[Rfam]
Shown here is a 52-nucleotide sequence from Pseudooceanicola spongiae, a member of the family "ffh sRNA".
NCBI's taxonomy places the organism under Bacteria, Pseudomonadota, Alphaproteobacteria, Rhodobacterales, Pseudooceanicola.
The base pairs follow the family's consensus structure, which is taken from published work.
A search with the family's covariance model found it, with a score of 62 bits.

RNA sequence: UUUUGCGGGGAUCGCCACCAGUCAGCGCGUUGCGCCCACUGGUGCCGUUGGC
Numbered sequence: 001u002u003u004u005g006c007g008g009g010g011a012u013c014g015c016c017a018c019c020a021g022u023c024a025g026c027g028c029g030u031u032g033c034g035c036c037c038a039c040u041g042g043u044g045c046c047g048u049u050g051g052c
Base pairs, nucleotide, nucleotide: 016044017043018042019041020040021039022038025035026034027033028032
Dot-bracket structure: ...............(((((((..((((...))))..)))))))........